[Rfam]
RNA sequence: AUGCAACAUCAAGAGAAGGGCUGACGUCCUCGCCAACCUGCCAACCUGGGCAAGGUGGAUACCGAAUUUCGGUGAUGCGGUCUAUCGACAAUUAACCAGGCCCUC
Dot-bracket structure: ......((((....(.(((((....)))))).((..((((((..[[[[))).))).))...............))))..(((....))).......]]]].....